A member of the RNA family "mir-135 microRNA precursor family" from Microcaecilia unicolor, 85 nucleotides long. Taxonomically the source falls in Microcaecilia (Eukaryota, Deuterostomia, Gymnophiona, Siphonopidae).

RNA sequence: CCUCUGCUGUGGUGUAUGGCUUUUUAUUCCUAUGUGAUGCUCUUCCUAACUCAUGUAGGGCUAAAAGCCAUGGGCUACUCAGAGG
Numbered sequence: 001c002c003u004c005u006g007c008u009g010u011g012g013u014g015u016a017u018g019g020c021u022u023u024u025u026a027u028u029c030c031u032a033u034g035u036g037a038u039g040c041u042c043u044u045c046c047u048a049a050c051u052c053a054u055g056u057a058g059g060g061c062u063a064a065a066a067g068c069c070a071u072g073g074g075c076u077a078c079u080c081a082g083a084g085g
Stems, first nucleotide, its partner, number of pairs: 002084005009078005015072009026062001028060010